[Rfam]
RNA: Small nucleolar RNA SNORD34
RNA sequence: AAAGGCCAAUGAUGGUUCGAAUUAGCCUACAUCGUUUGAGAAACCAAUGACAACGACAUUUACAAAAUGAAUUCUGAGGCCUAU
Numbered sequence: 001a002a003a004g005g006c007c008a009a010u011g012a013u014g015g016u017u018c019g020a021a022u023u024a025g026c027c028u029a030c031a032u033c034g035u036u037u038g039a040g041a042a043a044c045c046a047a048u049g050a051c052a053a054c055g056a057c058a059u060u061u062a063c064a065a066a067a068u069g070a071a072u073u074c075u076g077a078g079g080c081c082u083a084u
Stems, first nucleotide, its partner, number of pairs: 001084001004081004